The family of this 84-nucleotide sequence from Caenorhabditis briggsae is "mir-67 microRNA precursor family".
The base pairs follow the family's consensus structure, which was predicted with RNAalifold.
Taxonomically the source falls in Caenorhabditis (Eukaryota, Opisthokonta, Bilateria, Protostomia).
Gene Ontology terms of the family: miRNA-mediated post-transcriptional gene silencing and RISC complex.
A reference for the family is Liu et al. (2010), "MicroRNAs of Bombyx mori identified by Solexa sequencing", BMC Genomics.
[Rfam]
RNA sequence: AUUUCGAUCAACUCAUUCUGCUGGUUGUUAUGCUGACAAUUGAUGAUUAAGCAUCACAACCUCCUAGAAAGAGUAGACCGAUUC
Numbered sequence: 001a002u003u004u005c006g007a008u009c010a011a012c013u014c015a016u017u018c019u020g021c022u023g024g025u026u027g028u029u030a031u032g033c034u035g036a037c038a039a040u041u042g043a044u045g046a047u048u049a050a051g052c053a054u055c056a057c058a059a060c061c062u063c064c065u066a067g068a069a070a071g072a073g074u075a076g077a078c079c080g081a082u083u084c
Stems, first nucleotide, its partner, number of pairs: 008076001010074001012073003016069005023061002026058003030054003